[Rfam]
RNA sequence: AAGUCUUUUUACCAUCAGCGAGGUAUAGAGUUCCUACGUUCCUAUUCAGUCGUAGGAACUUAAUACCGUGCUCUUGGAGGACUGUC
Numbered sequence: 001a002a003g004u005c006u007u008u009u010u011a012c013c014a015u016c017a018g019c020g021a022g023g024u025a026u027a028g029a030g031u032u033c034c035u036a037c038g039u040u041c042c043u044a045u046u047c048a049g050u051c052g053u054a055g056g057a058a059c060u061u062a063a064u065a066c067c068g069u070g071c072u073c074u075u076g077g078a079g080g081a082c083u084g085u086c
Stems, first nucleotide, its partner, number of pairs: 012077003017072004022067005028061010